[Rfam]
Nucleotides: 077
Base pairs, nucleotide, nucleotide: 002076003075004074007071008070009069011067012066013065015063016062017061018060019059020058024054025053026052027051028050029049030048031047
Number, partner (000 for none) and nucleotide at each position: 001000c002076u003075g004074c005000a006000g007071a008070c009069u010000c011067c012066a013065g014000c015063g016062c017061c018060a019059u020058u021000u022000u023000c024054a025053g026052a027051g028050c029049u030048a031047u032000a033000a034000g035000u036000g037000u038000g039000a040000a041000g042000u043000g044000a045000u046000g047031a048030u049029a050028g051027c052026u053025c054024u055000u056000u057000c058020a059019a060018u061017g062016g063015u064000a065013c066012u067011g068000c069009a070008g071007u072000a073000a074004g075003c076002a077000u
The record is a 77-nucleotide RNA sequence from Oryzias latipes, which matches "mir-458 microRNA precursor family" in Rfam.